[Rfam]
The record is a 106-nucleotide sequence from Populus tomentosa, which matches "MIR480 microRNA precursor family" in Rfam. The literature on the family includes a 2005 paper in Plant Cell by Lu et al., "Novel and mechanical stress-responsive MicroRNAs in Populus trichocarpa that are absent from Arabidopsis". It scores 48 bits against the family's covariance model. The family has 69 seed sequences and 3,070 matches in Rfam 15.1. The organism belongs to Populus, within Eukaryota.
RNA sequence: CAAAUCCUUAUUGUUUACACCAUGUUAUAGCAGAUUCACACCUGACUGCUAAGAAUCAUUUGUUAUUGUGUGAAUAAUAACUUUUGAGAUUUUAAUUAGCGGUUUA
Dot-bracket structure: ..((((((..(.(....(.(.(.(((((................................................))))).)..).)....).)..)).))))..